[Rfam]
RNA: Y RNA
Organism: Prolemur simus
RNA sequence: GGCUGGUCUGAAGGUAGUGAGUUAUCUCACUUGAUUGUUUAUUGCCAGUUAUAGAUUGAACUCUUUGUUCUACUACUUUCCCCCUUUCUUACUGCUACACUUGACUAGUCUUAA
Dot-bracket structure: ((((((((.((..((((((((.....................((..((.....................))..))............))))))...))..))))))))))....